Source information: A member of the RNA family "Bacterial small signal recognition particle RNA" from Acinetobacter sp. CIP 102637, 97 nucleotides long. Taxonomically the source falls in Acinetobacter (Bacteria, Pseudomonadati, Pseudomonadota, Moraxellales). Rfam's curators write: The signal recognition particle (SRP) is a universally conserved ribonucleoprotein involved in the co-translational targeting of proteins to membranes. Clan: SRP clan. It is annotated as a non-coding RNA gene. A search with the family's covariance model found it, with a score of 73 bits. The family's consensus secondary structure is taken from published work.

RNA sequence: UACUGGUAGCUUCGCAAUUGUACUCUACGAACCCCGCCAGGACCGGAAGGUAGCAACGGUAGUAGAACUAUGAUGUGCCGAAGUCAUGCUGGUAGGG
Numbered sequence: 001u002a003c004u005g006g007u008a009g010c011u012u013c014g015c016a017a018u019u020g021u022a023c024u025c026u027a028c029g030a031a032c033c034c035c036g037c038c039a040g041g042a043c044c045g046g047a048a049g050g051u052a053g054c055a056a057c058g059g060u061a062g063u064a065g066a067a068c069u070a071u072g073a074u075g076u077g078c079c080g081a082a083g084u085c086a087u088g089c090u091g092g093u094a095g096g097g
Stems, first nucleotide, its partner, number of pairs: 004091005009084006015075001017074006024066005034059003042051003